[Rfam]
RNA sequence: ACCUGCAUUCAAAAGUGACCACGGGCUGCCUGUGCUCUGGUCGUUGCUGAUGCGAGGAGAGGAAUUGGGGAAAGCAGUUUCCCGUGUUUGGAGGGUCCACACCUGUCCCUUUCAAAUGCUGGCGCCUUUCACCA
Number, nucleotide and partner (000 for none) at each position: 001a000002c056003c000004u054005g053006c052007a051008u050009u049010c000011a000012a000013a000014a045015g044016u043017g042018a041019c040020c039021a038022c000023g037024g036025g035026c034027u000028g000029c000030c000031u000032g000033u000034g026035c025036u024037c023038u021039g020040g019041u018042c017043g016044u015045u014046g000047c000048u000049g009050a008051u007052g006053c005054g004055a000056g002057g000058a000059g000060a000061g000062g000063a000064a000065u000066u000067g000068g000069g130070g129071a128072a127073a000074g125075c124076a000077g000078u000079u000080u000081c000082c000083c000084g000085u000086g117087u116088u115089u114090g113091g111092a110093g109094g108095g107096u000097c000098c000099a000100c000101a000102c000103c000104u000105g000106u000107c095108c094109c093110u092111u091112u000113c090114a089115a088116a087117u086118g000119c000120u000121g000122g000123c000124g075125c074126c000127u072128u071129u070130c069131a000132c000133c000134a000
Rfam assigns this 134-nucleotide RNA from Camelus dromedarius to the family "Small nucleolar RNA SNORA71". The members of this family belong to the H/ACA class of snoRNAs which bind a number of proteins (including dyskerin, Gar1p and Nop10p) to form snoRNP complexes. This class of snoRNAs are thought to guide the sites of modification of uridines to pseudouridines by forming direct base pairing interactions with substrate RNAs. Taxonomically the source falls in Camelus (Eukaryota, Opisthokonta, Metazoa, Amniota). Rfam links the family to the GO terms RNA processing and nucleolus. On this family, see Ganot et al., Genes Dev 1997: "The family of box ACA small nucleolar RNAs is defined by an evolutionarily conserved secondary structure and ubiquitous sequence elements essential for RNA accumulation".